A member of the RNA family "Small nucleolar RNA SNORA71" from Loxodonta africana, 125 nucleotides long. Gene Ontology terms of the family: RNA processing and nucleolus. The base pairs follow the family's consensus structure, which was predicted with PFOLD. About the family: The members of this family belong to the H/ACA class of snoRNAs which bind a number of proteins (including dyskerin, Gar1p and Nop10p) to form snoRNP complexes. Taxonomically the source falls in Loxodonta (Eukaryota, Metazoa, Sarcopterygii, Proboscidea). The literature on the family includes a 1997 paper in Genes Dev by Ganot et al., "The family of box ACA small nucleolar RNAs is defined by an evolutionarily conserved secondary structure and ubiquitous sequence elements essential for RNA accumulation". The family's RNA type in Rfam is H/ACA-box small nucleolar RNA. The family has 40 seed sequences and 1,805 matches in Rfam 15.1.
RNA sequence: UCCUACAUUUGAAAGUGACUGUGGACUACCCAUGUCCUGGUCAUUCAUGGUGCACAGAGAGGAAUUGCCGAAACCGUUUCCCUGUGUUUGGAGGGUCCAUUCCUGUCCCUUCCAGACCUCCCACA
Numbered sequence: 001u002c003c004u005a006c007a008u009u010u011g012a013a014a015g016u017g018a019c020u021g022u023g024g025a026c027u028a029c030c031c032a033u034g035u036c037c038u039g040g041u042c043a044u045u046c047a048u049g050g051u052g053c054a055c056a057g058a059g060a061g062g063a064a065u066u067g068c069c070g071a072a073a074c075c076g077u078u079u080c081c082c083u084g085u086g087u088u089u090g091g092a093g094g095g096u097c098c099a100u101u102c103c104u105g106u107c108c109c110u111u112c113c114a115g116a117c118c119u120c121c122c123a124c125a
Base pairs, nucleotide, nucleotide: 001057004054006052007051008050009049014045015044016043017042018041019040020039021038023037024036025035026034086117087116088115089114090113091111092110093109094108095107